[Rfam]
About this RNA: The family of this 77-nucleotide RNA sequence from Salvia splendens is "Small nucleolar RNA Z102/R77". Its family is annotated with RNA processing and nucleolus in the Gene Ontology. The literature on the family includes a 2001 paper in J Mol Biol by Barneche et al., "Identification of 66 box C/D snoRNAs in Arabidopsis thaliana: extensive gene duplications generated multiple isoforms predicting new ribosomal RNA 2'-O-methylation sites". It scores 53 bits against the family's covariance model.
RNA sequence: GAAUGAAAUGAUGUUUACAAUUGUUUGAUAGCUGAUGUGAUGGCUAUUUAUCAUGUAUUAGCUCUAGCUGAUCAUUC
Numbered sequence: 001g002a003a004u005g006a007a008a009u010g011a012u013g014u015u016u017a018c019a020a021u022u023g024u025u026u027g028a029u030a031g032c033u034g035a036u037g038u039g040a041u042g043g044c045u046a047u048u049u050a051u052c053a054u055g056u057a058u059u060a061g062c063u064c065u066a067g068c069u070g071a072u073c074a075u076u077c
Stems, first nucleotide, its partner, number of pairs: 002076004027047001030045004